The record is a 142-nucleotide RNA sequence from Phyllostomus discolor, which matches "Small nucleolar RNA SNORA4" in Rfam. The match comes from Rfam's covariance-model search (106 bits). Gene Ontology terms of the family: nucleolus and RNA processing. Rfam's curators write: ACA4 is a member of the H/ACA class of snoRNA that guide the sites of modification of uridines to pseudouridines. Taxonomically the source falls in Phyllostomus (Eukaryota, Deuterostomia, Chordata, Laurasiatheria). The base pairs follow the family's consensus structure, which was predicted with PFOLD.
RNA sequence: AAGUUAAACAGAGUUUUUUGGAGGGGAAGAUUUUUUAAGAACUUUUACCAGCUUGGGCUAUUUGGGAGAUUAAAGAAGACCACACUCCACAGUGGGCUAUAUCACCAAACAUAUAGUACACUACUAUUUUGUAGCCUAGAUU
Numbered sequence: 001a002a003g004u005u006a007a008a009c010a011g012a013g014u015u016u017u018u019u020g021g022a023g024g025g026g027a028a029g030a031u032u033u034u035u036u037a038a039g040a041a042c043u044u045u046u047a048c049c050a051g052c053u054u055g056g057g058c059u060a061u062u063u064g065g066g067a068g069a070u071u072a073a074a075g076a077a078g079a080c081c082a083c084a085c086u087c088c089a090c091a092g093u094g095g096g097c098u099a100u101a102u103c104a105c106c107a108a109a110c111a112u113a114u115a116g117u118a119c120a121c122u123a124c125u126a127u128u129u130u131g132u133a134g135c136c137u138a139g140a141u142u
Stems, first nucleotide, its partner, number of pairs: 004064001006062002012059005020053002024049002027046001028043002031040001077137002080134001082132003091122004096117007